[Rfam]
RNA sequence: GGCAGAUUGGUGAUGAAACACAUACCCGCUUUAUUCCACUGAUUCCAGUGAUGGGAAGCUAUGUUAACAUAGCUUUUGUGGUUUUCAAUCCGAAGCAUCU
Numbered sequence: 001g002g003c004a005g006a007u008u009g010g011u012g013a014u015g016a017a018a019c020a021c022a023u024a025c026c027c028g029c030u031u032u033a034u035u036c037c038a039c040u041g042a043u044u045c046c047a048g049u050g051a052u053g054g055g056a057a058g059c060u061a062u063g064u065u066a067a068c069a070u071a072g073c074u075u076u077u078g079u080g081g082u083u084u085u086c087a088a089u090c091c092g093a094a095g096c097a098u099c100u
Base pairs, nucleotide, nucleotide: 004100005099006098007097054077055076056075057074058073059072060071061070062069063068
Background:
Shown here is a 100-nucleotide RNA sequence from Panicum virgatum, a member of the family "Small nucleolar RNA Z194". On this family, see Chen et al., Nucleic Acids Res 2003: "The high diversity of snoRNAs in plants: identification and comparative study of 120 snoRNA genes from Oryza sativa".